This 85-nucleotide RNA from Burkholderiales bacterium PBB1 belongs to the Rfam family "SucA RNA motif". Rfam links the family to the GO term regulation of translation. On this family, see Weinberg et al., Nucleic Acids Res 2007: "Identification of 22 candidate structured RNAs in bacteria using the CMfinder comparative genomics pipeline". A search with the family's covariance model found it, with a score of 69 bits. The base pairs follow the family's consensus structure, which is taken from published work.

[Rfam]
RNA sequence: UCGCUUGUCCGCCCACCGGUGCAGCCGGGUCGCGGAAGGUUUUUAAACCCACUAUCGCGCUGGAAACCGGCGCAUGAGGUGAGCG
Numbered sequence: 001u002c003g004c005u006u007g008u009c010c011g012c013c014c015a016c017c018g019g020u021g022c023a024g025c026c027g028g029g030u031c032g033c034g035g036a037a038g039g040u041u042u043u044u045a046a047a048c049c050c051a052c053u054a055u056c057g058c059g060c061u062g063g064a065a066a067c068c069g070g071c072g073c074a075u076g077a078g079g080u081g082a083g084c085g
Stems, first nucleotide, its partner, number of pairs: 002085003008036005017027004038049004050081004057073007